[Rfam]
RNA sequence: GUUAAUGGGAAUGUUGUUUGGCUCGAGGUUCAUAUAUGGAUCGAAGAAAAAAUCGAUUGUGUUGUAUAUAAUCUCGGACCAGGCUUCAUUCCCGUCAAC
Numbered sequence: 001g002u003u004a005a006u007g008g009g010a011a012u013g014u015u016g017u018u019u020g021g022c023u024c025g026a027g028g029u030u031c032a033u034a035u036a037u038g039g040a041u042c043g044a045a046g047a048a049a050a051a052a053u054c055g056a057u058u059g060u061g062u063u064g065u066a067u068a069u070a071a072u073c074u075c076g077g078a079c080c081a082g083g084c085u086u087c088a089u090u091c092c093c094g095u096c097a098a099c
Stems, first nucleotide, its partner, number of pairs: 001099003005095009016084006024076003
Record summary: This 99-nucleotide RNA from Momordica charantia belongs to the Rfam family "mir-166 microRNA precursor family". NCBI's taxonomy places the organism under Eukaryota, Streptophytina, Mesangiospermae, Cucurbitaceae, Momordica. Its family is annotated with miRNA-mediated post-transcriptional gene silencing and RISC complex in the Gene Ontology. This family represents the plant microRNA (miRNA) precursor mir-166. A search with the family's covariance model found it, with a score of 78 bits. The family's consensus secondary structure was predicted with PFOLD.